[Rfam]
RNA: Purine riboswitch aptamer
RNA sequence: GUAAGUGACAAACACAGACCUCAUAUAAUAGCGGGAAUAAGGCUCGCGAGUUUCUACCUGGUUACCUUAAAUAACCGGACUAUGGGGAAAGCACAACUUAUC
Numbered sequence: 001g002u003a004a005g006u007g008a009c010a011a012a013c014a015c016a017g018a019c020c021u022c023a024u025a026u027a028a029u030a031g032c033g034g035g036a037a038u039a040a041g042g043c044u045c046g047c048g049a050g051u052u053u054c055u056a057c058c059u060g061g062u063u064a065c066c067u068u069a070a071a072u073a074a075c076c077g078g079a080c081u082a083u084g085g086g087g088a089a090a091g092c093a094c095a096a097c098u099u100a101u102c
Stems, first nucleotide, its partner, number of pairs: 019087007029049001031047005058078007